[Rfam]
RNA sequence: UGCAGCCCUGUCAAAUUCGGUCCCUGCCUGCUCCGUGGCGGGGACCGGCCAGCCGGCUGCCACAGCAACUUCUGGAGUUUACUAGCCCUCAUGUCCUCUUCCCAUGGGACCCUGAGGGUAAAAUCACACCACGGACAUCA
Numbered sequence: 001u002g003c004a005g006c007c008c009u010g011u012c013a014a015a016u017u018c019g020g021u022c023c024c025u026g027c028c029u030g031c032u033c034c035g036u037g038g039c040g041g042g043g044a045c046c047g048g049c050c051a052g053c054c055g056g057c058u059g060c061c062a063c064a065g066c067a068a069c070u071u072c073u074g075g076a077g078u079u080u081a082c083u084a085g086c087c088c089u090c091a092u093g094u095c096c097u098c099u100u101c102c103c104a105u106g107g108g109a110c111c112c113u114g115a116g117g118g119u120a121a122a123a124u125c126a127c128a129c130c131a132c133g134g135a136c137a138u139c140a
Base pairs, nucleotide, nucleotide: 002060003059004058005057018047019046020045021044022043023042024041025040026039027038028037074132077129078128086118087117088116089115090114